The family of this 92-nucleotide sequence from Streptomyces sp. A0642 is "NLPC-P60 RNA". The base pairs follow the family's consensus structure, which is taken from published work. By type it is a cis-regulatory element.

RNA sequence: AGGUCCUUGCGUCACCCGACGGCGAGUGAGCGUAUGUGAGGAAUUGCGCUCACUCAUGGGGUAGUCGCACGAUUCACCCCGUUUCCGGAGGU
Dot-bracket structure: ........................((((..((((..........))))..))))...(((((((((....)))).)))))............
Numbered sequence: 001a002g003g004u005c006c007u008u009g010c011g012u013c014a015c016c017c018g019a020c021g022g023c024g025a026g027u028g029a030g031c032g033u034a035u036g037u038g039a040g041g042a043a044u045u046g047c048g049c050u051c052a053c054u055c056a057u058g059g060g061g062u063a064g065u066c067g068c069a070c071g072a073u074u075c076a077c078c079c080c081g082u083u084u085c086c087g088g089a090g091g092u
Stems, first nucleotide, its partner, number of pairs: 025054004031048004058080005063074004